[Rfam]
RNA sequence: AUGCAAUUGAGGUUGUACUGGUCCCGACAUAAAUUCCCAUUCUCUGAACUUUGUCAGCUGGGCUCAAUUAAUUUCAGUUGAUUUUCUUGAAUGGAACAUUG
Numbered sequence: 001a002u003g004c005a006a007u008u009g010a011g012g013u014u015g016u017a018c019u020g021g022u023c024c025c026g027a028c029a030u031a032a033a034u035u036c037c038c039a040u041u042c043u044c045u046g047a048a049c050u051u052u053g054u055c056a057g058c059u060g061g062g063c064u065c066a067a068u069u070a071a072u073u074u075c076a077g078u079u080g081a082u083u084u085u086c087u088u089g090a091a092u093g094g095a096a097c098a099u100u101g
Stems, first nucleotide, its partner, number of pairs: 037094005053082008
RNA: Small nucleolar RNA snoR99